[Rfam]
RNA: Bacterial small signal recognition particle RNA
Organism: Sutterella sp. CAG:521
RNA sequence: GGCGGGUCCCCUCGCAUGCAUUCGUCGUGAACCUGGUCAGGCCGGGAACGGAGCAGCCACAGCGAAGUGAAUGUAGUGCCGAGGAUAAGGCUCGCCACU
Numbered sequence: 001g002g003c004g005g006g007u008c009c010c011c012u013c014g015c016a017u018g019c020a021u022u023c024g025u026c027g028u029g030a031a032c033c034u035g036g037u038c039a040g041g042c043c044g045g046g047a048a049c050g051g052a053g054c055a056g057c058c059a060c061a062g063c064g065a066a067g068u069g070a071a072u073g074u075a076g077u078g079c080c081g082a083g084g085a086u087a088a089g090g091c092u093c094g095c096c097a098c099u
Base pairs, nucleotide, nucleotide: 004093005092006091007090008089010084011083012082013081014080015076017075018074019073020072021071022070023067025065026064027063028062034059035058036057037056042051043050044049